[Rfam]
RNA sequence: GACCCGGUCCGGGCCCCUCUGGCGCAAUUGCUCGGCACUUGCUGCUCGGCACUUGCGCGAUGUCGGAUCACAGCG
Numbered sequence: 001g002a003c004c005c006g007g008u009c010c011g012g013g014c015c016c017c018u019c020u021g022g023c024g025c026a027a028u029u030g031c032u033c034g035g036c037a038c039u040u041g042c043u044g045c046u047c048g049g050c051a052c053u054u055g056c057g058c059g060a061u062g063u064c065g066g067a068u069c070a071c072a073g074c075g
Stems, first nucleotide, its partner, number of pairs: 006069007022058006029051004
RNA: terC RNA
Organism: Ancylobacter defluvii